[Rfam]
RNA sequence: UACCUGGACACGGGGUGCCCCGCGCGUGGGCUGAGAUCACACCCGUCGAACCUGAACCAGUUAGGACUGGCGGAGGGAUGUCGUAUGUCGUUGCC
Numbered sequence: 001u002a003c004c005u006g007g008a009c010a011c012g013g014g015g016u017g018c019c020c021c022g023c024g025c026g027u028g029g030g031c032u033g034a035g036a037u038c039a040c041a042c043c044c045g046u047c048g049a050a051c052c053u054g055a056a057c058c059a060g061u062u063a064g065g066a067c068u069g070g071c072g073g074a075g076g077g078a079u080g081u082c083g084u085a086u087g088u089c090g091u092u093g094c095c
Stems, first nucleotide, its partner, number of pairs: 007082004011045004016039001017031004051076003057070004
Dot-bracket structure: ......((((((((.(((((.......)))).......)..)))).....(((...((((......))))...)))..)))).............

A member of the RNA family "TPP riboswitch aptamer (THI element)" from Streptomyces sp. GMY02, 95 nucleotides long.
Vitamin B(1) in its active form thiamin pyrophosphate (TPP) is an essential coenzyme that is synthesised by coupling of pyrimidine and thiazole moieties in bacteria.
The literature on the family includes a 2001 paper in Proc Natl Acad Sci U S A by Miranda-Rios et al., "A conserved RNA structure (thi box) is involved in regulation of thiamin biosynthetic gene expression in bacteria".
NCBI's taxonomy places the organism under Bacteria, Bacillati, Actinomycetes, Streptomycetaceae, Streptomyces.